[Rfam]
RNA sequence: CCCGCACCUGGACAGAAAGACCCUAUGAAGCUUUACUGUUCCCUGGGAUUGGCUUUGGGCCUUUCCUGCGCAGCUUAGGUGGAAGGCGAAGAAGGCCUCCUUCCGGGGGGGCCCGAGCCAUCAGUGAGAUACCACUCUGGAAGAGCUAGAAUUCUAACCUUGUGUCAGGACCUACGGGCCAAGGGACAGUCUCAGGUAGACAGUUUCUAUGGGGCGUAGGCCUCCCAAAAGGUAACGGAGGCGUGCAAAGGUUUCCUCGGGCCGGACGGAGAUUGGCCCUCGAGUGCAAAGGCAGAAGGGAGCUUGACUGCAAGACCCACCCGUCGAGCAGGGACGAAAGUCGGCCUUAGUGAUCCGACGGUGCCGAGUGGAAGGGCCGUCGCUCAACGGAUAAAAGUUACUCUAGGGAUAACAGGCUGAUCUUCCCCAAGAGUUCACAUCGACGGGAAGGUUUGGCACCUCGAUGUCGGCUCUUCGCCACCUGGGGCUGUAGUAUGUUCCAAGGGUUGGGCUGUUCGCCCAUUAAAGCGGUACGUGAGCUGGGUUCAGAACGUCGUGAGACAGUUCGGUCCAUAUCCGGUGCGGGCGUU
Number, nucleotide and partner (000 for none) at each position: 001c586002c585003c584004g583005c582006a581007c580008c579009u000010g578011g577012a576013c000014a000015g572016a000017a000018a000019g000020a000021c000022c407023c406024u405025a404026u000027g403028a402029a399030g398031c397032u396033u395034u000035a204036c203037u202038g201039u000040u000041c000042c196043c195044u194045g193046g192047g191048a190049u000050u000051g154052g153053c000054u151055u150056u149057g000058g147059g146060c145061c000062u143063u142064u141065c140066c139067u000068g137069c000070g000071c000072a000073g000074c000075u000076u000077a000078g136079g135080u134081g133082g132083a000084a000085g119086g118087c117088g000089a000090a000091g000092a000093a000094g000095g000096c000097c110098u109099c108100c107101u106102u000103c000104c000105g000106g101107g100108g099109g098110g097111g000112c000113c000114c000115g000116a000117g087118c086119c085120a000121u000122c000123a000124g000125u000126g000127a000128g000129a000130u000131a000132c082133c081134a080135c079136u078137c068138u000139g066140g065141a064142a063143g062144a000145g060146c059147u058148a000149g056150a055151a054152u000153u052154c051155u000156a000157a000158c184159c183160u182161u181162g000163u000164g000165u000166c000167a000168g000169g000170a000171c000172c000173u000174a000175c000176g000177g000178g000179c000180c000181a161182a160183g159184g158185g000186a000187c000188a000189g000190u048191c047192u046193c045194a044195g043196g042197u000198a000199g000200a000201c038202a037203g036204u035205u000206u000207c219208u218209a217210u216211g000212g000213g000214g000215c000216g210217u209218a208219g207220g242221c241222c240223u239224c238225c237226c000227a000228a000229a000230a000231g000232g000233u000234a000235a000236c000237g225238g224239a223240g222241g221242c220243g000244u000245g345246c344247a000248a000249a000250g000251g303252u302253u301254u300255c299256c298257u283258c282259g000260g278261g277262c276263c275264g274265g273266a000267c000268g000269g000270a000271g000272a000273u265274u264275g263276g262277c261278c260279c000280u000281c000282g258283a257284g293285u292286g000287c000288a000289a000290a000291g000292g285293c284294a000295g000296a000297a000298g256299g255300g254301a253302g252303c251304u000305u000306g000307a000308c331309u330310g329311c328312a000313a000314g325315a324316c323317c000318c000319a000320c000321c000322c000323g316324u315325c314326g000327a000328g311329c310330a309331g308332g000333g342334a000335c340336g000337a000338a000339a000340g335341u000342c333343g000344g246345c245346c000347u000348u000349a000350g000351u000352g000353a000354u000355c000356c382357g381358a380359c379360g000361g378362u000363g377364c376365c375366g000367a000368g000369u000370g000371g000372a000373a000374g000375g365376g364377c363378c361379g359380u358381c357382g356383c000384u000385c000386a000387a000388c000389g000390g000391a000392u000393a000394a000395a033396a032397g031398u030399u029400a000401c000402u028403c027404u025405a024406g023407g022408g000409a000410u000411a000412a000413c000414a000415g000416g457417c456418u455419g000420a454421u451422c450423u449424u448425c447426c446427c445428c000429a000430a000431g441432a440433g000434u000435u000436c000437a000438c000439a000440u432441c431442g000443a000444c000445g427446g426447g425448a424449a423450g422451g421452u000453u000454u420455g418456g417457c416458a000459c000460c000461u000462c000463g000464a000465u000466g000467u000468c543469g541470g540471c539472u538473c535474u000475u531476c530477g529478c528479c000480a000481c506482c505483u000484g000485g500486g499487g498488c497489u000490g000491u000492a000493g000494u000495a000496u000497g488498u487499u486500c485501c000502a000503a000504g000505g482506g481507u000508u522509g521510g520511g519512c518513u000514g000515u000516u000517c000518g512519c511520c510521c509522a508523u000524u000525a000526a000527a000528g478529c477530g476531g475532u000533a000534c000535g473536u000537g000538a472539g471540c470541u469542g000543g468544g000545u000546u000547c000548a000549g567550a566551a565552c564553g562554u561555c560556g000557u000558g000559a000560g555561a554562c553563a000564g552565u551566u550567c549568g000569g000570u000571c000572c015573a000574u000575a000576u012577c011578c010579g008580g007581u006582g005583c004584g003585g002586g001587c000588g000589u000590u000
The family of this 590-nucleotide part of an RNA from Musa balbisiana is "Archaeal large subunit ribosomal RNA". NCBI's taxonomy places the organism under Eukaryota, Streptophyta, commelinids, Zingiberales, Musa.